Small nucleolar RNA U54: a 90-nucleotide RNA from Macleaya cordata.
Rfam describes the family as follows. U54 is a C/D box small nucleolar RNA, which acts as a methylation guide for 18S ribosomal RNA in plants.
RNA sequence: GGCUCGAUGAUUACAUGCCUAAUCAGGCAAUAUACGCUAUUCUGAAAAUUGUUCUAUUAAUGUGGACAACCUUAGAUAGAUAUGAGAGCU
Numbered sequence: 001g002g003c004u005c006g007a008u009g010a011u012u013a014c015a016u017g018c019c020u021a022a023u024c025a026g027g028c029a030a031u032a033u034a035c036g037c038u039a040u041u042c043u044g045a046a047a048a049u050u051g052u053u054c055u056a057u058u059a060a061u062g063u064g065g066a067c068a069a070c071c072u073u074a075g076a077u078a079g080a081u082a083u084g085a086g087a088g089c090u
Stems, first nucleotide, its partner, number of pairs: 001090005
Dot-bracket structure: (((((................................................................................)))))
Taxonomically the source falls in Macleaya (Eukaryota, Streptophyta, Magnoliopsida, Mesangiospermae). Its family is annotated with RNA processing and nucleolus in the Gene Ontology. For this family Rfam cites "The high diversity of snoRNAs in plants: identification and comparative study of 120 snoRNA genes from Oryza sativa" (Chen et al., Nucleic Acids Res, 2003). The family's consensus secondary structure was predicted with PFOLD.